[Rfam]
Rfam assigns this 91-nucleotide RNA from Solanum commersonii to the family "mir-395 microRNA precursor family".
A search with the family's covariance model found it, with a score of 65 bits.
NCBI's taxonomy places the organism under Eukaryota, Euphyllophyta, Mesangiospermae, Solaneae, Solanum.
The literature on the family includes a 2004 paper in Mol Cell by Jones-Rhoades and Bartel, "Computational Identification of Plant MicroRNAs and Their Targets, Including a Stress-Induced miRNA".

RNA sequence: GUGUUCCCUAGAGUUCCCUUGACCGCUUCAUGAGGGCUUCCUUUAAAGUUAGAAGCCCUGCUGAAGUGUUUGGGGGAACUCCCGGGCUCAC
Numbered sequence: 001g002u003g004u005u006c007c008c009u010a011g012a013g014u015u016c017c018c019u020u021g022a023c024c025g026c027u028u029c030a031u032g033a034g035g036g037c038u039u040c041c042u043u044u045a046a047a048g049u050u051a052g053a054a055g056c057c058c059u060g061c062u063g064a065a066g067u068g069u070u071u072g073g074g075g076g077a078a079c080u081c082c083c084g085g086g087c088u089c090a091c
Base pairs, nucleotide, nucleotide: 006086007085008084011081012080013079014078015077016076017075018074019073020072022071024068025067026066027065028064029063030062033059034058035057